[Rfam]
RNA sequence: UCAUCACCAUCAUCACCCAGACUAGUCUUUCGGGAGAUGUGCGCAUACCCGGGAGGCAAGAAGCUCCCGGAGGAAUAAAUCGCUAAUACAAGAUUUCAACCCUCGGGAGAUAACUCCCGAGGGUUUUUUGAU
Numbered sequence: 001u002c003a004u005c006a007c008c009a010u011c012a013u014c015a016c017c018c019a020g021a022c023u024a025g026u027c028u029u030u031c032g033g034g035a036g037a038u039g040u041g042c043g044c045a046u047a048c049c050c051g052g053g054a055g056g057c058a059a060g061a062a063g064c065u066c067c068c069g070g071a072g073g074a075a076u077a078a079a080u081c082g083c084u085a086a087u088a089c090a091a092g093a094u095u096u097c098a099a100c101c102c103u104c105g106g107g108a109g110a111u112a113a114c115u116c117c118c119g120a121g122g123g124u125u126u127u128u129u130g131a132u
Base pairs, nucleotide, nucleotide: 009046010045011039012038013037014036017034018033020031021030048070049069051068052067053066054065055064098125099124100123101122102121103120104119105118106117107116108115109114
Record summary: Rfam assigns this 132-nucleotide sequence from Vibrio aquimaris to the family "Histidine operon leader". Rfam describes the family as follows. At least 6 amino acid operons are known to be regulated by attenuation. The match comes from Rfam's covariance-model search (87 bits). The source organism's lineage runs through Bacteria, Pseudomonadati, Vibrionales, Vibrionaceae and Vibrio. Its family is annotated with histidine biosynthetic process in the Gene Ontology. By type it is a cis-regulatory leader.